Record summary:
Shown here is a 114-nucleotide RNA from Stomatobaculum longum, a member of the family "FMN riboswitch aptamer (RFN element)". The source organism's lineage runs through Bacteria, Bacillota, Clostridia, Lachnospiraceae and Stomatobaculum. Pairs were carried over by alignment from the consensus structure, which is taken from published work. From the family's description: The RFN element is a highly conserved domain that is found frequently in the 5'-untranslated regions of prokaryotic mRNAs that encode for flavin mononucleotide (FMN) biosynthesis and transport proteins.

[Rfam]
RNA sequence: UGUAGUCUUCAGGGCAGGGUGAAAGUCCCUACCGGCGGUAUAGCCCGCGAGCCGAAAGGCAUGAUCCGGUCAGAUUCCGGAGCCGACAGUAUAGUCUGGAUGGAAGAAGCAACG
Numbered sequence: 001u002g003u004a005g006u007c008u009u010c011a012g013g014g015c016a017g018g019g020u021g022a023a024a025g026u027c028c029c030u031a032c033c034g035g036c037g038g039u040a041u042a043g044c045c046c047g048c049g050a051g052c053c054g055a056a057a058g059g060c061a062u063g064a065u066c067c068g069g070u071c072a073g074a075u076u077c078c079g080g081a082g083c084c085g086a087c088a089g090u091a092u093a094g095u096c097u098g099g100a101u102g103g104a105a106g107a108a109g110c111a112a113c114g
Stems, first nucleotide, its partner, number of pairs: 002113002005110001007109004017029003031095002033085002035048004043083002053059001065081005087098003
Dot-bracket structure: .((.(.((((......(((.......))).[[((((((....[[))))....(.....).....(((((.......)))))]])).(((....]]))).......))))).)).